Overview:
Rfam assigns this 154-nucleotide RNA sequence from Streptomyces sp. yr375 to the family "gntR-DTE RNA". Lineage of the source: Bacteria > Actinomycetota > Kitasatosporales > Streptomycetaceae > Streptomyces.
[Rfam]
RNA sequence: UGGGUGAAGGCCGCCGGCGGACACAUUCCUGCGCGUCAGCUCUGGAGAACAGUCCUGGGGAUCAUCCCUCCAUUUCUGGAGGUCAGCCCCUGGAUUGCCACCUGAUGCGCUUCCGCCCUGCUGUCGCGUCAGAGCAGUGAUGAUGACGCGCCCG
Numbered sequence: 001u002g003g004g005u006g007a008a009g010g011c012c013g014c015c016g017g018c019g020g021a022c023a024c025a026u027u028c029c030u031g032c033g034c035g036u037c038a039g040c041u042c043u044g045g046a047g048a049a050c051a052g053u054c055c056u057g058g059g060g061a062u063c064a065u066c067c068c069u070c071c072a073u074u075u076c077u078g079g080a081g082g083u084c085a086g087c088c089c090c091u092g093g094a095u096u097g098c099c100a101c102c103u104g105a106u107g108c109g110c111u112u113c114c115g116c117c118c119u120g121c122u123g124u125c126g127c128g129u130c131a132g133a134g135c136a137g138u139g140a141u142g143a144u145g146a147c148g149c150g151c152c153c154g
Base pairs, nucleotide, nucleotide: 016117017116018115019114020113021112031110032109033108034107035106036105037104038103039102043100044099045098050097051096052095053094054093
Pairs were carried over by alignment from the consensus structure, which is taken from published work.